[Rfam]
A member of the RNA family "c-di-GMP-I riboswitch aptamer" from Sporomusa acidovorans, 87 nucleotides long. From the family's description: GEMM was predicted in a large-scale screen for bacterial structured RNA regulatory elements. NCBI's taxonomy places the organism under Bacteria, Negativicutes, Sporomusaceae, Sporomusa, Sporomusa acidovorans.
RNA sequence: CUGUAUUAAAGGCAAACUUAUUGAAAGAUAAGGACGCAAAGCCGUGGGUCUAAAGAUAGUUUUAUCAAUGACUGCCAGGUUGCAUCA
Numbered sequence: 001c002u003g004u005a006u007u008a009a010a011g012g013c014a015a016a017c018u019u020a021u022u023g024a025a026a027g028a029u030a031a032g033g034a035c036g037c038a039a040a041g042c043c044g045u046g047g048g049u050c051u052a053a054a055g056a057u058a059g060u061u062u063u064a065u066c067a068a069u070g071a072c073u074g075c076c077a078g079g080u081u082g083c084a085u086c087a
Stems, first nucleotide, its partner, number of pairs: 012037002017032006040081004045077003048072003055066004